[Rfam]
RNA sequence: UGGCGCCCAGCGUGAGGACUGAAUACGGAAGAUCCAGUGAGGGAAAAAGACGUCCCCAAAGGAAUGUUCCACAAGAAUUUUUCACUCUAGACUCGCUGCGGGAACCUGCCUCGGCUACAACCAGAAGUAAGUACAGACGUCUGAUUAUGGGACAAGAAAUAAGUAGGCAUGAACUUUAUGUUAAACAGUUACAAGAAGCCUUAAAGAUGCGAAGAGUAAAAGUCAAAAUAGAGGAUCUAUUGAGAUUCUUUAAAUUCAUUAAGGAAACCUGUCCUU
Numbered sequence: 001u002g003g004c005g006c007c008c009a010g011c012g013u014g015a016g017g018a019c020u021g022a023a024u025a026c027g028g029a030a031g032a033u034c035c036a037g038u039g040a041g042g043g044a045a046a047a048a049g050a051c052g053u054c055c056c057c058a059a060a061g062g063a064a065u066g067u068u069c070c071a072c073a074a075g076a077a078u079u080u081u082u083c084a085c086u087c088u089a090g091a092c093u094c095g096c097u098g099c100g101g102g103a104a105c106c107u108g109c110c111u112c113g114g115c116u117a118c119a120a121c122c123a124g125a126a127g128u129a130a131g132u133a134c135a136g137a138c139g140u141c142u143g144a145u146u147a148u149g150g151g152a153c154a155a156g157a158a159a160u161a162a163g164u165a166g167g168c169a170u171g172a173a174c175u176u177u178a179u180g181u182u183a184a185a186c187a188g189u190u191a192c193a194a195g196a197a198g199c200c201u202u203a204a205a206g207a208u209g210c211g212a213a214g215a216g217u218a219a220a221a222g223u224c225a226a227a228a229u230a231g232a233g234g235a236u237c238u239a240u241u242g243a244g245a246u247u248c249u250u251u252a253a254a255u256u257c258a259u260u261a262a263g264g265a266a267a268c269c270u271g272u273c274c275u276u
Stems, first nucleotide, its partner, number of pairs: 006031001012026003036053001037051002084128003087124002093119001097113002100110002136153001140151004160203003163199002211251007220238001222236003261276005
A member of the RNA family "Mason-Pfizer monkey virus packaging signal" from Nannospalax galili, 276 nucleotides long. By type it is a cis-regulatory element.